[Rfam]
RNA sequence: GCCGGGGUGAGCCUCGCUGGUGCGGGGUGCAGACUUCAAAUCUGUAGACGCCUAAUAAGCGUAAUCGUUCGAUUCGAUCUCACCGGC
Numbered sequence: 001g002c003c004g005g006g007g008u009g010a011g012c013c014u015c016g017c018u019g020g021u022g023c024g025g026g027g028u029g030c031a032g033a034c035u036u037c038a039a040a041u042c043u044g045u046a047g048a049c050g051c052c053u054a055a056u057a058a059g060c061g062u063a064a065u066c067g068u069u070c071g072a073u074u075c076g077a078u079c080u081c082a083c084c085g086g087c
Stems, first nucleotide, its partner, number of pairs: 001087005007081001009079001012027006028046006048062004064078004
Dot-bracket structure: (((((.(.(..((((((....))))))((((((.......)))))).((((.......)))).((((.......))))).).)))))
Selenocysteine transfer RNA: an 87-nucleotide RNA from Emiliania huxleyi. The base pairs follow the family's consensus structure, which is taken from published work. On this family, see Mizutani and Goto, FEBS Lett 2000: "Eukaryotic selenocysteine tRNA has the 9/4 secondary structure". A search with the family's covariance model found it, with a score of 70 bits.